The family of this 92-nucleotide RNA from Martinezella rhizogenes is "Rhizobiales sRNA Atu_Ti1". The source organism's lineage runs through Bacteria, Pseudomonadati, Hyphomicrobiales, Rhizobiaceae and Martinezella.
[Rfam]
RNA sequence: GUCCAGAUUGCGGCGGACCAUAGCCAAAAGCCGGUCAAGGCGAUGGCGACAGCUGGCCAUAUGCGGGUUACGAGGCCCGCAAGGCCAGCUGU
Numbered sequence: 001g002u003c004c005a006g007a008u009u010g011c012g013g014c015g016g017a018c019c020a021u022a023g024c025c026a027a028a029a030g031c032c033g034g035u036c037a038a039g040g041c042g043a044u045g046g047c048g049a050c051a052g053c054u055g056g057c058c059a060u061a062u063g064c065g066g067g068u069u070a071c072g073a074g075g076c077c078c079g080c081a082a083g084g085c086c087a088g089c090u091g092u
Base pairs, nucleotide, nucleotide: 001018002017003016004015023047024046025045026044031039049092050091051090052089053088054087055086056085057084058083062081063080064079065078066077067076068075